Rfam assigns this 69-nucleotide RNA sequence from Eucalyptus grandis to the family "Small nucleolar RNA snoR60".
The family's RNA type in Rfam is C/D-box small nucleolar RNA.
A search with the family's covariance model found it, with a score of 63 bits.
The organism belongs to Eucalyptus, within Eukaryota.
[Rfam]
RNA sequence: AUGCAUUUGAUGGAAUACUUGGAUUCUCCUUCAAGACAGUUGGUGAUGCAUUCUCGAGUUUCUGAUGCA
Number, nucleotide and partner (000 for none) at each position: 001a000002u069003g068004c067005a066006u000007u000008u000009g000010a000011u000012g000013g000014a000015a000016u000017a000018c000019u000020u000021g000022g000023a000024u000025u000026c000027u000028c000029c000030u000031u000032c000033a000034a000035g000036a000037c000038a000039g000040u000041u000042g000043g000044u000045g000046a000047u000048g000049c000050a000051u000052u000053c000054u000055c000056g000057a000058g000059u000060u000061u000062c000063u000064g000065a000066u005067g004068c003069a002